[Rfam]
Nucleotides: 595
Base pairs, nucleotide, nucleotide: 002593003592010427011426012425013424015423016422017419018418019417020416021415023223024222025221026220030215031214032213033212034211035210036209039118040117041116042115043114044113045112046111047110048109050106051105052104053103054102055101066099067098068097069096070095073082074081122203123202124201125200126199132196133195134194135193140152141151142150143149169190170189171188172187173186174185175184226239227237228236229235240262241261242260243259244258245257265366266365271323272322273321274320275319276318277303278302280298281297282296284294285293304313305312328352329351330350333347334346335345336344354363355362356361377405378404379403380402381401382400385399387397388396436477438475440474442470443469444468445467446466447465451461452460488563489561490560491559492558493555494552495551496550497549498548501526502525504521505520506519507518508517509516528542529541530540532538569587570586571585572584573582574581575580
Number, partner (000 for none) and nucleotide at each position: 001000a002593a003592a004000g005000a006000a007000g008000a009000c010427c011426c012425u013424g014000u015423u016422g017419a018418g019417c020416u021415u022000g023223a024222c025221u026220c027000u028000a029000a030215u031214c032213u033212g034211u035210c036209u037000u038000c039118g040117u041116a042115a043114a044113g045112a046111g047110a048109c049000u050106u051105g052104g053103a054102a055101a056000a057000u058000g059000u060000a061000g062000c063000g064000u065000a066099g067098a068097u069096g070095g071000g072000a073082g074081u075000g076000g077000c078000a079000a080000c081074a082073c083000g084000u085000c086000a087000a088000u089000g090000a091000a092000a093000c094000a095070c096069c097068a098067u099066u100000a101055u102054u103053u104052u105051c106050a107000u108000u109048g110047u111046u112045u113044c114043u115042u116041u117040a118039c119000u120000u121000a122203c123202u124201u125200g126199g127000u128000u129000a130000u131000a132196c133195a134194g135193a136000g137000a138000u139000u140152g141151g142150a143149u144000u145000u146000u147000a148000u149143a150142u151141c152140c153000a154000g155000u156000g157000u158000u159000u160000g161000a162000g163000u164000g165000a166000c167000a168000a169190a170189c171188g172187u173186c174185g175184a176000u177000a178000c179000u180000u181000g182000u183000a184175u185174c186173g187172g188171c189170g190169u191000g192000a193135u194134c195133u196132g197000c198000u199126u200125c201124a202123a203122g204000g205000a206000a207000a208000g209036a210035g211034a212033c213032a214031g215030g216000u217000g218000g219000g220026g221025a222024g223023u224000u225000u226239g227237g228236c229235u230000g231000g232000g233000g234000c235229g236228g237227u238000a239226c240262a241261u242260c243259u244258a245257u246000c247000a248000a249000a250000u251000g252000u253000u254000a255000a256000c257245g258244u259243a260242g261241g262240u263000g264000u265366c266365c267000a268000a269000a270000a271323g272322u273321u274320g275319a276318c277303u278302c279000a280298g281297u282296g283000c284294g285293g286000a287000c288000a289000g290000a291000a292000a293285c294284c295000a296282c297281a298280c299000a300000u301000u302278g303277a304313g305312u306000a307000a308000a309000a310000g311000g312305g313304c314000a315000u316000a317000a318276g319275u320274c321273a322272g323271c324000u325000u326000g327000a328352u329351u330350u331000a332000g333347a334346u335345u336344u337000u338000c339000a340000g341000u342000a343000c344336g345335a346334a347333u348000a349000c350330a351329g352328a353000c354363g355362g356361a357000g358000a359000a360000a361356u362355c363354c364000g365266g366265g367000c368000c369000u370000a371000u372000c373000g374000a375000u376000c377405c378404u379403u380402u381401u382400g383000a384000u385399u386000u387397a388396a389000c390000g391000a392000g393000u394000u395000u396388u397387u398000u399385g400382c401381a402380a403379g404378a405377g406000g407000u408000g409000a410000c411000a412000g413000a414000a415021a416020a417019g418018u419017u420000a421000c422016c423015a424013c425012a426011g427010g428000g429000a430000u431000a432000a433000c434000u435000g436477g437000c438475u439000u440474g441000u442470g443469g444468c445467g446466g447465c448000c449000a450000a451461g452460c453000g454000u455000u456000c457000a458000u459000a460452g461451c462000g463000a464000c465447g466446u467445c468444g469443c470442u471000u472000u473000u474440u475438g476000a477436u478000c479000c480000u481000u482000c483000g484000a485000u486000g487000u488563c489561g490560g491559c492558u493555c494552u495551u496550c497549c498548u499000a500000u501526c502525a503000u504521u505520g506519c507518g508517a509516a510000g511000c512000a513000g514000a515000c516509u517508u518507c519506g520505c521504a522000a523000a524000g525502u526501g527000u528542u529541g530540g531000a532538u533000u534000g535000u536000u537000c538532a539000c540530c541529c542528a543000c544000c545000a546000a547000u548498a549497g550496g551495g552494a553000a554000c555493g556000u557000g558492a559491g560490c561489u562000g563488g564000g565000u566000u567000u568000a569587g570586a571585c572584c573582g574581u575580c576000g577000u578000g579000a580575g581574a582573c583000a584572g585571g586570u587569u588000a589000g590000u591000u592003u593002u594000a595000c